[Rfam]
RNA sequence: ACUCAACACUAUAUCUUUAAAAAGAAUGAGUCUUGGUUAGUAAAGCAAGCCGUUAGUUCGGAUCCUUGAUCAGCCAGUUAGUUCUAAACCUGUUUUUAAGGAGUUU
Numbered sequence: 001a002c003u004c005a006a007c008a009c010u011a012u013a014u015c016u017u018u019a020a021a022a023a024g025a026a027u028g029a030g031u032c033u034u035g036g037u038u039a040g041u042a043a044a045g046c047a048a049g050c051c052g053u054u055a056g057u058u059c060g061g062a063u064c065c066u067u068g069a070u071c072a073g074c075c076a077g078u079u080a081g082u083u084c085u086a087a088a089c090c091u092g093u094u095u096u097u098a099a100g101g102a103g104u105u106u
Base pairs, nucleotide, nucleotide: 023085024084025083026082027081034076035075036074037073038072043067044066045065050061051060052059

A member of the RNA family "6S-Flavo RNA" from Tenacibaculum jejuense, 106 nucleotides long. Rfam classes the family as a small RNA.